Streptomyces sRNA 4677: a 245-nucleotide RNA sequence from Streptomyces sp. CC53.
On this family, see Hindra et al., PLoS One 2014: "Complex intra-operonic dynamics mediated by a small RNA in Streptomyces coelicolor".
About the family: Located in the intergenic region between anti-sigma factor SCO4677 gene and a putative regulatory protein gene SCO4676. scr4677 expression requires the SCO4677 activity and scr4677 sRNA itself seem to affect the levels of the SCO4676-associated transcripts.
Taxonomically the source falls in Streptomyces (Bacteria, Bacillati, Actinomycetota, Actinomycetes).
It is annotated as a small RNA.
It scores 136 bits against the family's covariance model.

[Rfam]
RNA sequence: UGCUCCGGUGGGCUCGCCAGUCCUUCCAAGGAACGAACGGAAGGAAAGGACCCCUCCAAACCCCACCCCUCCCCCCGUUCAGGACGCCCUCACCCUCUCGGGUGAAAAAGGUCAAUUGGGCUGGCGCUGGGGCGGGUUGGACGUUCUAGGCUCACCAUGCAUAUACCGCAGACAUACGUCGGCCCCCGCCCGGGCUAGCACCCCGGGGCGAGGGCCUGACCACGCAGGAAGCAAAGACCUUCCCG
Numbered sequence: 001u002g003c004u005c006c007g008g009u010g011g012g013c014u015c016g017c018c019a020g021u022c023c024u025u026c027c028a029a030g031g032a033a034c035g036a037a038c039g040g041a042a043g044g045a046a047a048g049g050a051c052c053c054c055u056c057c058a059a060a061c062c063c064c065a066c067c068c069c070u071c072c073c074c075c076c077g078u079u080c081a082g083g084a085c086g087c088c089c090u091c092a093c094c095c096u097c098u099c100g101g102g103u104g105a106a107a108a109a110g111g112u113c114a115a116u117u118g119g120g121c122u123g124g125c126g127c128u129g130g131g132g133c134g135g136g137u138u139g140g141a142c143g144u145u146c147u148a149g150g151c152u153c154a155c156c157a158u159g160c161a162u163a164u165a166c167c168g169c170a171g172a173c174a175u176a177c178g179u180c181g182g183c184c185c186c187c188g189c190c191c192g193g194g195c196u197a198g199c200a201c202c203c204c205g206g207g208g209c210g211a212g213g214g215c216c217u218g219a220c221c222a223c224g225c226a227g228g229a230a231g232c233a234a235a236g237a238c239c240u241u242c243c244c245g
Stems, first nucleotide, its partner, number of pairs: 008223003020073001090105006120156001122154003181216005187210003192203003227243005